A member of the RNA family "Small nucleolar RNA SNORA48" from Carlito syrichta, 144 nucleotides long. Rfam's curators write: The snoRNA ACA 48 has been identified to guide pseudouridylation of the residue U3797 in the 28S rRNA subunit. Rfam classes the family as an H/ACA-box small nucleolar RNA. The base pairs follow the family's consensus structure, which was predicted with RNAalifold. The family is grouped with related families in Rfam's "SNORA48 clan".
RNA sequence: ACCCCCUGGUGAUGGGCAAAGAGACACUUCAUUGGUGGUAUUGCUCUUAUAUCAGUUAGGGGCAGAGCAGAUGGACAGUCCUUUUUCAUCCUAGCUUGAUGCCUGCAUUGGUGGCUGGAGCUGUUUCAUGCCUGGGGCACAUUA
Dot-bracket structure: ..((((((....(((...(((.((.(((........))).))...)))...)))..))))))....................(.(((..........(.(...((...((.(.......).))...)).).)..))).).....